A member of the RNA family "Vault RNA" from Owenia fusiformis, 119 nucleotides long. The literature on the family includes a 2009 paper in Mol Biol Evol by Stadler et al., "Evolution of Vault RNAs".
RNA sequence: AGGUUGGCGAAGCAUUGUGGAUACAUCGUGAUCUAAUGUUAAGAUAUUUCUCCUGCUCAGAAAAAAGUUGUGGGUUAGAAUCCCACCGAUAACUUCCACACGCGCAAUCCAGCCUUUUU
Numbered sequence: 001a002g003g004u005u006g007g008c009g010a011a012g013c014a015u016u017g018u019g020g021a022u023a024c025a026u027c028g029u030g031a032u033c034u035a036a037u038g039u040u041a042a043g044a045u046a047u048u049u050c051u052c053c054u055g056c057u058c059a060g061a062a063a064a065a066a067g068u069u070g071u072g073g074g075u076u077a078g079a080a081u082c083c084c085a086c087c088g089a090u091a092a093c094u095u096c097c098a099c100a101c102g103c104g105c106a107a108u109c110c111a112g113c114c115u116u117u118u119u
Base pairs, nucleotide, nucleotide: 002114003113004112005111006110007109012103013102015100017099018098019097020096026079027078
The match comes from Rfam's covariance-model search (42 bits).
Lineage of the source: Eukaryota > Opisthokonta > Lophotrochozoa > Polychaeta > Owenia.